[Rfam]
RNA: Guanidine-II riboswitch aptamer (mini-ykkC)
RNA sequence: UUCUGAGGACGACCUUGAAAACCAUUUAACUAGCGGGGACGACCCCA
Numbered sequence: 001u002u003c004u005g006a007g008g009a010c011g012a013c014c015u016u017g018a019a020a021a022c023c024a025u026u027u028a029a030c031u032a033g034c035g036g037g038g039a040c041g042a043c044c045c046c047a
Stems, first nucleotide, its partner, number of pairs: 001020002004017005035046004